Notes: The record is a 112-nucleotide RNA sequence, which matches "DUF3577 RNA" in Rfam. It scores 55 bits against the family's covariance model.
RNA sequence: CGAAUGCACAGCGUCAUCCGUGACGUCAAACUCGUCUGUGAUCCGGCAACGUCAUCCGUGUGAUGGCGUGACGACCUGACUCUACACGCUGCCACCACCCGGCAGCAUCACC
Numbered sequence: 001c002g003a004a005u006g007c008a009c010a011g012c013g014u015c016a017u018c019c020g021u022g023a024c025g026u027c028a029a030a031c032u033c034g035u036c037u038g039u040g041a042u043c044c045g046g047c048a049a050c051g052u053c054a055u056c057c058g059u060g061u062g063a064u065g066g067c068g069u070g071a072c073g074a075c076c077u078g079a080c081u082c083u084a085c086a087c088g089c090u091g092c093c094a095c096c097a098c099c100c101g102g103c104a105g106c107a108u109c110a111c112c
Base pairs, nucleotide, nucleotide: 011026012025013024014023015022016021032074033073034072035071036070050068051067052066053065054064055063088106089105090104091103092102